[Rfam]
RNA: Small nucleolar RNA SNORA33
Organism: Leptonychotes weddellii
RNA sequence: AAGCCAGCCGAUUAAUCUGCUUACCUGAAUGUGUUCCUGCAGAAACUGAGAAAACGCUGGCAAUACGAAUGCCAUGGUACAAGCCUUAAAGACCCUGAAGUCCUUAAGGUCCCUGAAAAUGGCUAUAAGA
Numbered sequence: 001a002a003g004c005c006a007g008c009c010g011a012u013u014a015a016u017c018u019g020c021u022u023a024c025c026u027g028a029a030u031g032u033g034u035u036c037c038u039g040c041a042g043a044a045a046c047u048g049a050g051a052a053a054a055c056g057c058u059g060g061c062a063a064u065a066c067g068a069a070u071g072c073c074a075u076g077g078u079a080c081a082a083g084c085c086u087u088a089a090a091g092a093c094c095c096u097g098a099a100g101u102c103c104u105u106a107a108g109g110u111c112c113c114u115g116a117a118a119a120u121g122g123c124u125a126u127a128a129g130a
Stems, first nucleotide, its partner, number of pairs: 003061005016043005071123004083110007091102003